[Rfam]
RNA: Y RNA
Organism: Camelus ferus
Nucleotides: 081
Stems, first nucleotide, its partner, number of pairs: 001074008010066002015061001016057006026042003030038001
Number, partner (000 for none) and nucleotide at each position: 001074a002073g003072u004071u005070g006069g007068u008067c009000c010066g011065a012000g013000g014000u015061u016057u017056g018055u019054g020053g021052a022000u023000u024000a025000c026042c027041g028040u029000u030038a031000u032000a033000a034000u035000g036000u037000c038030u039000a040028a041027c042026g043000a044000u045000g046000u047000c048000u049000c050000c051000c052021u053020c054019c055018a056017c057016a058000a059000c060000c061015a062000c063000g064000c065011u066010u067008g068007a069006c070005u071004g072003a073002c074001u075000g076000u077000g078000u079000u080000u081000u